[Rfam]
This 174-nucleotide sequence from Veronia nyctiphanis belongs to the Rfam family "Lysine riboswitch aptamer". The family has 47 seed sequences and 3,224 matches in Rfam 15.1. The organism belongs to Veronia, within Bacteria. The base pairs follow the family's consensus structure, which is taken from published work. Rfam links the family to the GO term lysine biosynthetic process.
RNA sequence: GAUGUCAGAAGAGGUGCGAUUAUCAGGCAGUCAUUGUGCGGAGCCCUACUCCAAUGCGCAGUGGUCAGGGGAUAAGUCGCCGAGGUAAAUCGGGUGCAGGGGACCCGGUUUGUCGGUCUUGAAAGUUGAAUCUUUCGGGCUGUCACCCAGCUUGGGUGGAGUGCUUCUGGUUCU
Number, nucleotide and partner (000 for none) at each position: 001g000002a000003u000004g000005u000006c169007a168008g167009a166010a165011g164012a000013g000014g000015u000016g080017c079018g078019a077020u076021u075022a073023u072024c071025a000026g000027g000028c000029a000030g065031u064032c063033a062034u061035u060036g059037u058038g000039c000040g000041g000042a000043g000044c000045c000046c000047u000048a000049c000050u000051c000052c000053a000054a000055u000056g000057c000058g037059c036060a035061g034062u033063g032064g031065u030066c000067a000068g000069g000070g000071g024072a023073u022074a000075a021076g020077u019078c018079g017080c016081c000082g000083a000084g114085g113086u112087a111088a110089a109090u108091c107092g106093g105094g104095u103096g000097c000098a000099g000100g000101g000102g000103a095104c094105c093106c092107g091108g090109u089110u088111u087112g086113u085114c084115g141116g140117u139118c138119u000120u137121g136122a135123a134124a133125g132126u000127u000128g000129a000130a000131u000132c125133u124134u123135u122136c121137g120138g118139g117140c116141u115142g000143u159144c158145a157146c156147c155148c154149a153150g000151c000152u000153u149154g148155g147156g146157u145158g144159g143160a000161g000162u000163g000164c011165u010166u009167c008168u007169g006170g000171u000172u000173c000174u000